[Rfam]
RNA sequence: AAGUCGGGAGGCUGCCUGUGGGAAGGUGGCUACGAAUAGACUUGAGCCCAUCAUCUCAAAGGGGCAGCGCACCGUAGCCCGACGGUGUGCAUC
Numbered sequence: 001a002a003g004u005c006g007g008g009a010g011g012c013u014g015c016c017u018g019u020g021g022g023a024a025g026g027u028g029g030c031u032a033c034g035a036a037u038a039g040a041c042u043u044g045a046g047c048c049c050a051u052c053a054u055c056u057c058a059a060a061g062g063g064g065c066a067g068c069g070c071a072c073c074g075u076a077g078c079c080c081g082a083c084g085g086u087g088u089g090c091a092u093c
Stems, first nucleotide, its partner, number of pairs: 001043005010031008067093001069090001070087005
Record summary:
Rhodo-rpoB RNA: a 93-nucleotide RNA sequence. The family's consensus secondary structure is taken from published work. Rfam classes the family as a cis-regulatory element.